A member of the RNA family "mir-26 microRNA precursor family" from Carassius auratus, 79 nucleotides long. The match comes from Rfam's covariance-model search (76 bits). The organism belongs to Carassius, within Eukaryota. Its family is annotated with miRNA-mediated post-transcriptional gene silencing and RISC complex in the Gene Ontology. On this family, see Lagos-Quintana et al., Science 2001: "Identification of novel genes coding for small expressed RNAs".
[Rfam]
RNA sequence: CUGUUCCCUCGUUCAAGUAAUCCAGGAUAGGCUGGCUGUCCUGGGAGGCCUAUUCAUGAUUACUUGCACUAGGUGGCAG
Numbered sequence: 001c002u003g004u005u006c007c008c009u010c011g012u013u014c015a016a017g018u019a020a021u022c023c024a025g026g027a028u029a030g031g032c033u034g035g036c037u038g039u040c041c042u043g044g045g046a047g048g049c050c051u052a053u054u055c056a057u058g059a060u061u062a063c064u065u066g067c068a069c070u071a072g073g074u075g076g077c078a079g
Stems, first nucleotide, its partner, number of pairs: 002078004007073003011069002014066009025055009